RNA sequence: AUGUCCUGCUCGUGAUCGUCUUCUCAACCUUCACCGGCAGGCGGCACAAGGAAGGGCUCUCCCGGGCGGGUCGCUCGGGAGAGCCCUUC
Numbered sequence: 001a002u003g004u005c006c007u008g009c010u011c012g013u014g015a016u017c018g019u020c021u022u023c024u025c026a027a028c029c030u031u032c033a034c035c036g037g038c039a040g041g042c043g044g045c046a047c048a049a050g051g052a053a054g055g056g057c058u059c060u061c062c063c064g065g066g067c068g069g070g071u072c073g074c075u076c077g078g079g080a081g082a083g084c085c086c087u088u089c
Stems, first nucleotide, its partner, number of pairs: 002043002005041006012034004018028002051089016
Rfam assigns this 89-nucleotide sequence from Streptomyces phaeofaciens to the family "sodF sRNA". Taxonomically the source falls in Streptomyces (Bacteria, Bacillati, Actinomycetota, Streptomycetaceae). On this family, see Kim et al., Nucleic Acids Res 2014: "Inverse regulation of Fe- and Ni-containing SOD genes by a Fur family regulator Nur through small RNA processed from 3'UTR of the sodF mRNA".